Fluoride riboswitch aptamer (crcB RNA motif): a 67-nucleotide RNA from Vagococcus allomyrinae.
[Rfam]
RNA sequence: AGUUAUCGCGGUGAUGGUGUUCGCCUUUAACUAUUUAUGAAAAUAAAUUAAUGACGCCUGUUACAAG
Numbered sequence: 001a002g003u004u005a006u007c008g009c010g011g012u013g014a015u016g017g018u019g020u021u022c023g024c025c026u027u028u029a030a031c032u033a034u035u036u037a038u039g040a041a042a043a044u045a046a047a048u049u050a051a052u053g054a055c056g057c058c059u060g061u062u063a064c065a066a067g
Stems, first nucleotide, its partner, number of pairs: 010025004016058006033048006